[Rfam]
RNA: Fluoride riboswitch aptamer (crcB RNA motif)
Organism: Anaerostipes sp. 494a
RNA sequence: AUUAUACAUGGGAAUGAAGUACUCCCUUAGUAUUUAUACUUAAACCGCUUAUUAGAGCUGAUGACUUCUGCAAUUAU
Numbered sequence: 001a002u003u004a005u006a007c008a009u010g011g012g013a014a015u016g017a018a019g020u021a022c023u024c025c026c027u028u029a030g031u032a033u034u035u036a037u038a039c040u041u042a043a044a045c046c047g048c049u050u051a052u053u054a055g056a057g058c059u060g061a062u063g064a065c066u067u068c069u070g071c072a073a074u075u076a077u
Base pairs, nucleotide, nucleotide: 010026011025012024013023016068017067018066019065020064047058048057049056050055